The family of this 52-nucleotide sequence from Allosphingosinicella deserti is "ffh sRNA". On this family, see Meyer et al., BMC Genomics 2009: "Identification of candidate structured RNAs in the marine organism 'Candidatus Pelagibacter ubique'". The base pairs follow the family's consensus structure, which is taken from published work.
RNA sequence: CGUCCGAAGGAUGCACGCUGGCCGGCGAGUUUCGCCCGCCGGCGUUUUUCGU
Numbered sequence: 001c002g003u004c005c006g007a008a009g010g011a012u013g014c015a016c017g018c019u020g021g022c023c024g025g026c027g028a029g030u031u032u033c034g035c036c037c038g039c040c041g042g043c044g045u046u047u048u049u050c051g052u
Stems, first nucleotide, its partner, number of pairs: 016044007025035004